[Rfam]
Shown here is a 73-nucleotide sequence from Methanoculleus sp. MH98A, a member of the family "S15-Methanomicrobia ribosomal protein leader". The family's RNA type in Rfam is cis-regulatory leader. It is one of the family's seed sequences. Lineage of the source: Archaea > Methanobacteriota > Methanomicrobiales > Methanomicrobiaceae > Methanoculleus.
Nucleotides: 073
Stems, first nucleotide, its partner, number of pairs: 001016006024073004030068002035050005052063004
Number, partner (000 for none) and nucleotide at each position: 001016a002015g003014c004013a005012c006011g007000a008000u009000c010000a011006c012005g013004u014003g015002c016001u017000g018000a019000c020000u021000g022000u023000g024073g025072u026071a027070a028000g029000u030068c031067c032000g033000a034000c035050g036049u037048g038047c039046u040000c041000c042000c043000g044000g045000a046039a047038g048037c049036a050035c051000u052063g053062c054061c055060c056000g057000c058000a059000a060055g061054g062053g063052c064000u065000c066000g067031g068030g069000a070027u071026u072025a073024c